[Rfam]
RNA: mir-330 microRNA precursor family
RNA sequence: CUUUGGCGAUCACUGCUUCUCUGGGCCUGUGUCUUAGGCUCUGCUAGUCUUACCGAGCAAAGCACACGGCCUGCAGAGACGCAGCGCUCUGCUC
Numbered sequence: 001c002u003u004u005g006g007c008g009a010u011c012a013c014u015g016c017u018u019c020u021c022u023g024g025g026c027c028u029g030u031g032u033c034u035u036a037g038g039c040u041c042u043g044c045u046a047g048u049c050u051u052a053c054c055g056a057g058c059a060a061a062g063c064a065c066a067c068g069g070c071c072u073g074c075a076g077a078g079a080c081g082c083a084g085c086g087c088u089c090u091g092c093u094c
Stems, first nucleotide, its partner, number of pairs: 005093003008089002011086001013084004018079006024071004028066004033062003038058004